[Rfam]
RNA: Small nucleolar RNA snoR77
Organism: Centaurea solstitialis
RNA sequence: AGGCAACCACCUUUAUGAAUCACUCAAAAGGUAGGUGUUAUUCUGUUCGUAAAUUAAUUUCUUAUGCUCUUCAGAUUUGUUGAGAUUUUUAGUCGAUGAAGCUGGUCUAGUAAGCAUAAGUACAUU
Numbered sequence: 001a002g003g004c005a006a007c008c009a010c011c012u013u014u015a016u017g018a019a020u021c022a023c024u025c026a027a028a029a030g031g032u033a034g035g036u037g038u039u040a041u042u043c044u045g046u047u048c049g050u051a052a053a054u055u056a057a058u059u060u061c062u063u064a065u066g067c068u069c070u071u072c073a074g075a076u077u078u079g080u081u082g083a084g085a086u087u088u089u090u091a092g093u094c095g096a097u098g099a100a101g102c103u104g105g106u107c108u109a110g111u112a113a114g115c116a117u118a119a120g121u122a123c124a125u126u
Stems, first nucleotide, its partner, number of pairs: 002039004007035002009032006017024001061120003066115003073108005079102003084094003